[Rfam]
The record is an 86-nucleotide sequence from Solanum tuberosum, which matches "MIR8024 microRNA precursor family" in Rfam.

RNA sequence: UUGGAGGAUUUAAAGACUUCAACUCGCAGACUUAGAGGAUUUGAAGACUUCAACUUGUAGGCUUGGAGGAUUUGAAGACGUCAACU
Numbered sequence: 001u002u003g004g005a006g007g008a009u010u011u012a013a014a015g016a017c018u019u020c021a022a023c024u025c026g027c028a029g030a031c032u033u034a035g036a037g038g039a040u041u042u043g044a045a046g047a048c049u050u051c052a053a054c055u056u057g058u059a060g061g062c063u064u065g066g067a068g069g070a071u072u073u074g075a076a077g078a079c080g081u082c083a084a085c086u
Stems, first nucleotide, its partner, number of pairs: 001084004006079001009076006017068005026058003032053002035050003
The organism belongs to Solanum, within Eukaryota.